[Rfam]
RNA sequence: CUGCUAUCCAGAAAGACCGAGGGACCGGGCCCGAUGACGUCUUGGCAACCUGCUCCGCAGGUGCCAACUCCCGUUUCGCCGCCUUUUUAGCGAAAGAAGAUGUCAG
Numbered sequence: 001c002u003g004c005u006a007u008c009c010a011g012a013a014a015g016a017c018c019g020a021g022g023g024a025c026c027g028g029g030c031c032c033g034a035u036g037a038c039g040u041c042u043u044g045g046c047a048a049c050c051u052g053c054u055c056c057g058c059a060g061g062u063g064c065c066a067a068c069u070c071c072c073g074u075u076u077c078g079c080c081g082c083c084u085u086u087u088u089a090g091c092g093a094a095a096g097a098a099g100a101u102g103u104c105a106g
Stems, first nucleotide, its partner, number of pairs: 001106003005102004013043005021032003026073004044065004049061005069098001074095006

SAM riboswitch aptamer (S box leader): a 106-nucleotide RNA sequence from Hymenobacter montanus.
Lineage of the source: Bacteria > Bacteroidota > Cytophagia > Hymenobacteraceae > Hymenobacter.